[Rfam]
RNA: Small nucleolar RNA R38
Nucleotides: 091
Stems, first nucleotide, its partner, number of pairs: 001091001003089005
Number, partner (000 for none) and nucleotide at each position: 001091c002000c003089u004088u005087g006086c007085c008000a009000g010000u011000g012000a013000u014000g015000c016000u017000u018000u019000a020000g021000u022000u023000a024000u025000c026000c027000c028000u029000g030000u031000c032000u033000g034000a035000a036000a037000c038000c039000c040000a041000a042000g043000u044000a045000c046000u047000a048000c049000c050000g051000u052000a053000c054000u055000u056000g057000g058000a059000u060000g061000u062000g063000a064000g065000g066000a067000u068000a069000u070000a071000u072000u073000g074000u075000a076000c077000u078000u079000u080000u081000c082000u083000g084000a085007g086006g087005c088004a089003a090000a091001g